[Rfam]
The record is a 153-nucleotide RNA from Parahaliea mediterranea, which matches "TPP riboswitch aptamer (THI element)" in Rfam. Lineage of the source: Bacteria > Pseudomonadati > Cellvibrionales > Halieaceae > Parahaliea.
RNA sequence: UUGCAAACCUGGGGGUGGCCCUGCCGCCGUGGCGCAGCUGUCGACAUGUCGAUUCCGCAGCGAUACCGCGGCCAGGCCUGAGAUACCACUUCGGUGAACCCUUUGAACCUGAUCCGGUUAGAACCGGCGUAGGGAUAGGUGCCUCGGUCGCAA
Numbered sequence: 001u002u003g004c005a006a007a008c009c010u011g012g013g014g015g016u017g018g019c020c021c022u023g024c025c026g027c028c029g030u031g032g033c034g035c036a037g038c039u040g041u042c043g044a045c046a047u048g049u050c051g052a053u054u055c056c057g058c059a060g061c062g063a064u065a066c067c068g069c070g071g072c073c074a075g076g077c078c079u080g081a082g083a084u085a086c087c088a089c090u091u092c093g094g095u096g097a098a099c100c101c102u103u104u105g106a107a108c109c110u111g112a113u114c115c116g117g118u119u120a121g122a123a124c125c126g127g128c129g130u131a132g133g134g135a136u137a138g139g140u141g142c143c144u145c146g147g148u149c150g151c152a153a
Base pairs, nucleotide, nucleotide: 007140008139009138010137011102012101013100014099016096017078018077019076020075085095086094087093108133109132110131111130114127115126116125117124